[Rfam]
RNA: mir-767 microRNA precursor family
Organism: Mus musculus
RNA sequence: AUAGGUUUUUACUCAUGCACCAUGGUUGUCUGAGCACAUAACAUGCUUGUCUGCUCAUACCCUAUGGUUCCUGAAGAGGAAUCUUA
Number, nucleotide and partner (000 for none) at each position: 001a000002u000003a084004g083005g082006u081007u080008u079009u078010u077011a000012c000013u074014c073015a072016u000017g070018c000019a068020c067021c066022a065023u064024g063025g062026u000027u000028g060029u059030c000031u057032g056033a055034g054035c053036a052037c000038a050039u049040a048041a047042c000043a000044u000045g000046c000047u041048u040049g039050u038051c000052u036053g035054c034055u033056c032057a031058u000059a029060c028061c000062c025063u024064a023065u022066g021067g020068u019069u000070c017071c000072u015073g014074a013075a000076g000077a010078g009079g008080a007081a006082u005083c004084u003085u000086a000